[Rfam]
RNA: Small nucleolar RNA SNORA22
RNA sequence: UUGCACGGAGAACACCCAGGGACGCUAGUGUGGCUCUCUCUGGUCUCUUACUUCUGUGCUACAGUAACUCUGCUCUGUACCUCUGCAUUAGGAGAGUCCUCGUCUCCAUAAAUGUAUUCAGCGGAUCAGUACAAAC
Numbered sequence: 001u002u003g004c005a006c007g008g009a010g011a012a013c014a015c016c017c018a019g020g021g022a023c024g025c026u027a028g029u030g031u032g033g034c035u036c037u038c039u040c041u042g043g044u045c046u047c048u049u050a051c052u053u054c055u056g057u058g059c060u061a062c063a064g065u066a067a068c069u070c071u072g073c074u075c076u077g078u079a080c081c082u083c084u085g086c087a088u089u090a091g092g093a094g095a096g097u098c099c100u101c102g103u104c105u106c107c108a109u110a111a112a113u114g115u116a117u118u119c120a121g122c123g124g125a126u127c128a129g130u131a132c133a134a135a136c
Stems, first nucleotide, its partner, number of pairs: 003059006010053001014049001016043005022037001024034003061076001063074004083121003086114004090109001091107005